[Rfam]
RNA: Small nucleolar RNA Z105
Organism: Miscanthus lutarioriparius
RNA sequence: UUGGCAUGAUGAGGAAAGAAAUACUGUGUCUGAUCUAAGUGAUGAGAAAUACCCUCCUACUCAUUCUGA
Numbered sequence: 001u002u003g004g005c006a007u008g009a010u011g012a013g014g015a016a017a018g019a020a021a022u023a024c025u026g027u028g029u030c031u032g033a034u035c036u037a038a039g040u041g042a043u044g045a046g047a048a049a050u051a052c053c054c055u056c057c058u059a060c061u062c063a064u065u066c067u068g069a
Stems, first nucleotide, its partner, number of pairs: 006064004027046001030041001
Dot-bracket structure: .....((((.................(..(..........)....)..............)))).....